[Rfam]
RNA sequence: GCGGGCAUAGCUCAGUUGGUAGAGUACAAGCUUCCCAAGCUUGGGGUCACGAGUUCGAACCUCGUUGCCCGCU
Dot-bracket structure: (((((((..((((........)))).(((((.......))))).....(((((.......)))))))))))).
A member of the RNA family "tRNA" from Candidatus Magnetomorum sp. HK-1, 73 nucleotides long. NCBI's taxonomy places the organism under Bacteria, Pseudomonadati, Thermodesulfobacteriota, Candidatus Magnetomoraceae, Candidatus Magnetomorum. Pairs were carried over by alignment from the consensus structure, which is taken from published work. About the family: Transfer RNA (tRNA) molecules are approximately 80 nucleotides in length.